[Rfam]
RNA sequence: CGCCCAGGCUGGAACUGCAGUGGUGCAAUCAUAGCUCACUGCAGCCUCGACCUCCUGGGCU
Number, nucleotide and partner (000 for none) at each position: 001c000002g060003c059004c058005c057006a056007g055008g054009c000010u049011g048012g047013a000014a000015c044016u043017g042018c041019a040020g039021u038022g037023g036024u000025g035026c034027a000028a000029u000030c000031a000032u000033a000034g026035c025036u023037c022038a021039c020040u019041g018042c017043a016044g015045c000046c000047u012048c011049g010050a000051c000052c000053u000054c008055c007056u006057g005058g004059g003060c002061u000
A member of the RNA family "mir-3135 microRNA precursor family" from Piliocolobus tephrosceles, 61 nucleotides long. Pairs were carried over by alignment from the consensus structure, which was predicted with RNAalifold. A search with the family's covariance model found it, with a score of 81 bits. Rfam links the family to the GO terms RISC complex and miRNA-mediated post-transcriptional gene silencing. Lineage of the source: Eukaryota > Teleostomi > Eutheria > Primates > Piliocolobus.